Rfam assigns this 353-nucleotide RNA sequence from a Kofleriaceae bacterium to the family "Bacterial RNase P class A". By type it is a ribozyme. A search with the family's covariance model found it, with a score of 302 bits.

[Rfam]
RNA sequence: GAAGAGGGAGAGGUGACCGCCGGUGGCGUCGCGGCAACGCGGCGUCACGGGAGGAAAGUCCGAGCUUCACAGGGCAAGGUGCUGGUUAACGGCCAGUCGAGGUGACUCGCAGGAAAGUGCCACAGAAAGCAAACCGCCGGUCGCAAGGCCGGUAAGGGUGAAAGGGUGCGGUAAGAGCGCACCGCCUCGCUGGUGACAGCGAGGGCACGGCAAACCCCACCUGAAGCAAGACCAGACAGGGGUCGUGUUGCCCGCACGAUGACUCCGGGUUGGUCGCUCGAGCCCAGCGGCAACGCUGGGCCUAGAAGAAUGGUCGCCACAAGACAGAACUCGGCUUAACGCCCUCUUCGACG
Numbered sequence: 001g002a003a004g005a006g007g008g009a010g011a012g013g014u015g016a017c018c019g020c021c022g023g024u025g026g027c028g029u030c031g032c033g034g035c036a037a038c039g040c041g042g043c044g045u046c047a048c049g050g051g052a053g054g055a056a057a058g059u060c061c062g063a064g065c066u067u068c069a070c071a072g073g074g075c076a077a078g079g080u081g082c083u084g085g086u087u088a089a090c091g092g093c094c095a096g097u098c099g100a101g102g103u104g105a106c107u108c109g110c111a112g113g114a115a116a117g118u119g120c121c122a123c124a125g126a127a128a129g130c131a132a133a134c135c136g137c138c139g140g141u142c143g144c145a146a147g148g149c150c151g152g153u154a155a156g157g158g159u160g161a162a163a164g165g166g167u168g169c170g171g172u173a174a175g176a177g178c179g180c181a182c183c184g185c186c187u188c189g190c191u192g193g194u195g196a197c198a199g200c201g202a203g204g205g206c207a208c209g210g211c212a213a214a215c216c217c218c219a220c221c222u223g224a225a226g227c228a229a230g231a232c233c234a235g236a237c238a239g240g241g242g243u244c245g246u247g248u249u250g251c252c253c254g255c256a257c258g259a260u261g262a263c264u265c266c267g268g269g270u271u272g273g274u275c276g277c278u279c280g281a282g283c284c285c286a287g288c289g290g291c292a293a294c295g296c297u298g299g300g301c302c303u304a305g306a307a308g309a310a311u312g313g314u315c316g317c318c319a320c321a322a323g324a325c326a327g328a329a330c331u332c333g334g335c336u337u338a339a340c341g342c343c344c345u346c347u348u349c350g351a352c353g
Stems, first nucleotide, its partner, number of pairs: 001349008010340001012318007020051002023048010056337003060334005065226004072253004077222005082096005097111001098109004112217002117215002119211003134157002136153007165183006184206001185204008230275004240266003244258005282301008